[Rfam]
RNA sequence: UCUGCGGACCGGGCCCCUCUGGCGAUCCUUCAUGAUCGCGAUGUCGGACCGCAUCG
Numbered sequence: 001u002c003u004g005c006g007g008a009c010c011g012g013g014c015c016c017c018u019c020u021g022g023c024g025a026u027c028c029u030u031c032a033u034g035a036u037c038g039c040g041a042u043g044u045c046g047g048a049c050c051g052c053a054u055c056g
Base pairs, nucleotide, nucleotide: 006050007049009047010046011045012044022039023038024037025036026035027034
RNA: terC RNA